[Rfam]
RNA sequence: UGGCGAACCCGCCAAAUCCGCACACGUAUCGUCACCGCUUUCGGGGUGCCCGGGCCGAACAGGCCUCGGGUCGCAGGCGGGGAUACGUGGAGGUUCAAC
Numbered sequence: 001u002g003g004c005g006a007a008c009c010c011g012c013c014a015a016a017u018c019c020g021c022a023c024a025c026g027u028a029u030c031g032u033c034a035c036c037g038c039u040u041u042c043g044g045g046g047u048g049c050c051c052g053g054g055c056c057g058a059a060c061a062g063g064c065c066u067c068g069g070g071u072c073g074c075a076g077g078c079g080g081g082g083a084u085a086c087g088u089g090g091a092g093g094u095u096c097a098a099c
Stems, first nucleotide, its partner, number of pairs: 023089008035080006042073002048071007
The family of this 99-nucleotide RNA from Dokdonella koreensis is "t44 RNA". About the family: This family consists of a number of bacterial RNA genes of between 135 and 170 bases in length. The t44 gene has been identified in several species of enteric bacteria but homologs have also been identified in Pseudomonas and Coxiella species. Rfam classes the family as a small RNA. NCBI's taxonomy places the organism under Bacteria, Pseudomonadati, Lysobacterales, Rhodanobacteraceae, Dokdonella koreensis.